[Rfam]
The record is a 72-nucleotide RNA from Cricetulus griseus, which matches "Small nucleolar RNA SNORD113/SNORD114 family" in Rfam. Rfam's curators write: The imprinted human domain at 14q32 contains two clusters of tandemly repeated small nucleolar RNAs named 14q(I) and 14q(II) snoRNAs. The family has 59 seed sequences and 5,721 matches in Rfam 15.1. Its family is annotated with nucleolus and RNA processing in the Gene Ontology. Taxonomically the source falls in Cricetulus (Eukaryota, Craniata, Boreoeutheria, Myomorpha). It scores 59 bits against the family's covariance model.
RNA sequence: UGGAUCAAUGAUGACCACUGAUGAUGUAUGAUCUAGGGAUCAUGACUACAGGUCUGGGAAUCUGAGCUUCAC
Numbered sequence: 001u002g003g004a005u006c007a008a009u010g011a012u013g014a015c016c017a018c019u020g021a022u023g024a025u026g027u028a029u030g031a032u033c034u035a036g037g038g039a040u041c042a043u044g045a046c047u048a049c050a051g052g053u054c055u056g057g058g059a060a061u062c063u064g065a066g067c068u069u070c071a072c
Base pairs, nucleotide, nucleotide: 002070003069004068006066